[Rfam]
RNA sequence: UAGGUGGGCACCGGCGACCCGGCCGGUGUGGCCAUUACCCACGCCAUGACCUCGGGGAUGGGCGGAUUGCGGACUGCCGGAGACCUGGUAGCCCGCAUGC
Numbered sequence: 001u002a003g004g005u006g007g008g009c010a011c012c013g014g015c016g017a018c019c020c021g022g023c024c025g026g027u028g029u030g031g032c033c034a035u036u037a038c039c040c041a042c043g044c045c046a047u048g049a050c051c052u053c054g055g056g057g058a059u060g061g062g063c064g065g066a067u068u069g070c071g072g073a074c075u076g077c078c079g080g081a082g083a084c085c086u087g088g089u090a091g092c093c094c095g096c097a098u099g100c
Stems, first nucleotide, its partner, number of pairs: 007038001010035001013032001015030002017027003074091004079086002